[Rfam]
RNA sequence: GGGGGGGGGUUCAAUCUUGAUCACUAAAGGCGAGGUGAACCUUUGUCUAGUCUUAUAUAAGGCGAAACUCUCAAAAUGCGGGAAACUCUUAAAAACAAAUCUACCAAGUUAAUAUAGUAAUAUAAUUAAUGGAACAGGUAAUGACUCGUUGUAUGGUAAAAACGAUUUGUAUAUGUAGAAAAUCUGCUACCAAGCACCUAGUAUUCUAAGGAAUAAGGGUGUGCAGUUCAUCGACUAAACGUGAGUUGGUUUUUUAUUAAUAAAAGAUAUUAAUAAUUAGCUUAAGAUAUAGUCAGGCUCAAUAUAUGAAUAUUGG
Numbered sequence: 001g002g003g004g005g006g007g008g009g010u011u012c013a014a015u016c017u018u019g020a021u022c023a024c025u026a027a028a029g030g031c032g033a034g035g036u037g038a039a040c041c042u043u044u045g046u047c048u049a050g051u052c053u054u055a056u057a058u059a060a061g062g063c064g065a066a067a068c069u070c071u072c073a074a075a076a077u078g079c080g081g082g083a084a085a086c087u088c089u090u091a092a093a094a095a096c097a098a099a100u101c102u103a104c105c106a107a108g109u110u111a112a113u114a115u116a117g118u119a120a121u122a123u124a125a126u127u128a129a130u131g132g133a134a135c136a137g138g139u140a141a142u143g144a145c146u147c148g149u150u151g152u153a154u155g156g157u158a159a160a161a162a163c164g165a166u167u168u169g170u171a172u173a174u175g176u177a178g179a180a181a182a183u184c185u186g187c188u189a190c191c192a193a194g195c196a197c198c199u200a201g202u203a204u205u206c207u208a209a210g211g212a213a214u215a216a217g218g219g220u221g222u223g224c225a226g227u228u229c230a231u232c233g234a235c236u237a238a239a240c241g242u243g244a245g246u247u248g249g250u251u252u253u254u255u256a257u258u259a260a261u262a263a264a265a266g267a268u269a270u271u272a273a274u275a276a277u278u279a280g281c282u283u284a285a286g287a288u289a290u291a292g293u294c295a296g297g298c299u300c301a302a303u304a305u306a307u308g309a310a311u312a313u314u315g316g
Base pairs, nucleotide, nucleotide: 013056066247067246068245069244070243072241078187079186080185081184082183087179088178089177189227190226194222195221196220197219202215203214204213205212206211231295233294234293235292236291237290249281250280251279254276255275256274257273301314302313303312304311305310

Description: This 316-nucleotide RNA sequence from Rosellinia necatrix belongs to the Rfam family "Group I catalytic intron". Group I catalytic introns are large self-splicing ribozymes. The source organism's lineage runs through Eukaryota, saccharomyceta, Sordariomycetes, Xylariomycetidae and Rosellinia. The base pairs follow the family's consensus structure, which is taken from published work.